[Rfam]
RNA sequence: CAGCGACACUCUGGAAAGCGUCCGUGCGUCAGCCCGGGCCACCGAAGGGGUAAGCUGUUCGAAAGAACGGCGAAAGCUCUCAGGUUCCGUGACAGAGGGGGCAGC
Numbered sequence: 001c002a003g004c005g006a007c008a009c010u011c012u013g014g015a016a017a018g019c020g021u022c023c024g025u026g027c028g029u030c031a032g033c034c035c036g037g038g039c040c041a042c043c044g045a046a047g048g049g050g051u052a053a054g055c056u057g058u059u060c061g062a063a064a065g066a067a068c069g070g071c072g073a074a075a076g077c078u079c080u081c082a083g084g085u086u087c088c089g090u091g092a093c094a095g096a097g098g099g100g101g102c103a104g105c
Stems, first nucleotide, its partner, number of pairs: 007099001009097005020039004041085003044081002048079003054071005
The record is a 105-nucleotide sequence from Sphingomonas sp. ID1715, which matches "Glycine riboswitch aptamer" in Rfam. Gene Ontology term of the family: glycine biosynthetic process. It scores 51 bits against the family's covariance model. Lineage of the source: Bacteria > Alphaproteobacteria > Sphingomonadales > Sphingomonadaceae > Sphingomonas.